[Rfam]
RNA: mir-22 microRNA precursor family
RNA sequence: CGUUGCCUCACAGUCGUUCUUCACUGGCUAGCUUUAUGUCCCACGCCCCACGCUAAAGCUGCCAGUUGAAGAGCUGUUGUGUGUGUA
Numbered sequence: 001c002g003u004u005g006c007c008u009c010a011c012a013g014u015c016g017u018u019c020u021u022c023a024c025u026g027g028c029u030a031g032c033u034u035u036a037u038g039u040c041c042c043a044c045g046c047c048c049c050a051c052g053c054u055a056a057a058g059c060u061g062c063c064a065g066u067u068g069a070a071g072a073g074c075u076g077u078u079g080u081g082u083g084u085g086u087a
Base pairs, nucleotide, nucleotide: 005084006083010080011079012078017073018072019071020070021069022068026063027062028061030060031059032058033057034056035055036054